[Rfam]
RNA: Selenocysteine transfer RNA
RNA sequence: GGGGGAGUAUGGGUUCUGGUGUGCCCUCUGGUCUUCAAAACCAGUAUGAGGAGUUAACAGCUUCUUAGGUAGGUUCGAUUCCUACACUUUCCC
Numbered sequence: 001g002g003g004g005g006a007g008u009a010u011g012g013g014u015u016c017u018g019g020u021g022u023g024c025c026c027u028c029u030g031g032u033c034u035u036c037a038a039a040a041c042c043a044g045u046a047u048g049a050g051g052a053g054u055u056a057a058c059a060g061c062u063u064c065u066u067a068g069g070u071a072g073g074u075u076c077g078a079u080u081c082c083u084a085c086a087c088u089u090u091c092c093c
Base pairs, nucleotide, nucleotide: 001093002092003091004090005089006088007087008086011026012025013024014023016021028044029043030042031041032040047067048066049065050064051063070084071083072082073081